A member of the RNA family "t44 RNA" from Thiobaca trueperi, 96 nucleotides long. This family consists of a number of bacterial RNA genes of between 135 and 170 bases in length. On this family, see Tjaden et al., Nucleic Acids Res 2002: "Transcriptome analysis of Escherichia coli using high-density oligonucleotide probe arrays". The base pairs follow the family's consensus structure, which was predicted with LocARNA.

RNA sequence: CUUUCUUUUUAUCUGUCCACACAUGCGUCGACACAUUGCGGCUGGGUGCCUGGCAAAGCGUUCCAGGUUGCCGCGUGGGACGCAUGGAGGCCCAAC
Numbered sequence: 001c002u003u004u005c006u007u008u009u010u011a012u013c014u015g016u017c018c019a020c021a022c023a024u025g026c027g028u029c030g031a032c033a034c035a036u037u038g039c040g041g042c043u044g045g046g047u048g049c050c051u052g053g054c055a056a057a058g059c060g061u062u063c064c065a066g067g068u069u070g071c072c073g074c075g076u077g078g079g080a081c082g083c084a085u086g087g088a089g090g091c092c093c094a095a096c
Stems, first nucleotide, its partner, number of pairs: 022086008034077003038074005048068005